[Rfam]
The family of this 168-nucleotide sequence from Oscillibacter sp. 1-3 is "Lysine riboswitch aptamer".
The source organism's lineage runs through Bacteria, Bacillota, Eubacteriales, Oscillospiraceae and Oscillibacter.
The family has 47 seed sequences and 3,224 matches in Rfam 15.1.
The match comes from Rfam's covariance-model search (69 bits).
About the family: Riboswitches are metabolite binding domains within certain messenger RNAs that serve as precision sensors for their corresponding targets. Allosteric rearrangement of mRNA structure is mediated by ligand binding, and this results in modulation of gene expression. This family includes riboswitches that sense lysine in a number of genes involved in lysine metabolism, including lysC.
The base pairs follow the family's consensus structure, which is taken from published work.
Gene Ontology term of the family: lysine biosynthetic process.
RNA sequence: AAAUGAGAUAGAGGCGCGGAGACGAUGAAGUCGCGGGAGCCGGCAGGCGAGGAACGCGGCGGGGGCAGAUCCGCCGAACUCCCCGUCCGGGCGCGGGCGGAGGGUGGGCCCGUGAGAAAUACUCCCGGGACUGUCCGCGGGCUUGCCUGCGGGAGCGCUAUCCGCUUA
Numbered sequence: 001a002a003a004u005g006a007g008a009u010a011g012a013g014g015c016g017c018g019g020a021g022a023c024g025a026u027g028a029a030g031u032c033g034c035g036g037g038a039g040c041c042g043g044c045a046g047g048c049g050a051g052g053a054a055c056g057c058g059g060c061g062g063g064g065g066c067a068g069a070u071c072c073g074c075c076g077a078a079c080u081c082c083c084c085g086u087c088c089g090g091g092c093g094c095g096g097g098c099g100g101a102g103g104g105u106g107g108g109c110c111c112g113u114g115a116g117a118a119a120u121a122c123u124c125c126c127g128g129g130a131c132u133g134u135c136c137g138c139g140g141g142c143u144u145g146c147c148u149g150c151g152g153g154a155g156c157g158c159u160a161u162c163c164g165c166u167u168a
Stems, first nucleotide, its partner, number of pairs: 007162005016074005024066001030060006078105004083100007106132002109129004114124003134153007